[Rfam]
RNA: Bacteroidetes FopS (family of paralogous sRNAs)
RNA sequence: GUGUUUUUCAUGGUAUUAGAUUUAAGGUUAAUGAAGAUUGAUUGUCGCGAUGACAGUCAAUUUUUUUUAU
Numbered sequence: 001g002u003g004u005u006u007u008u009c010a011u012g013g014u015a016u017u018a019g020a021u022u023u024a025a026g027g028u029u030a031a032u033g034a035a036g037a038u039u040g041a042u043u044g045u046c047g048c049g050a051u052g053a054c055a056g057u058c059a060a061u062u063u064u065u066u067u068u069a070u
Stems, first nucleotide, its partner, number of pairs: 040058007
Dot-bracket structure: .......................................(((((((.....)))))))............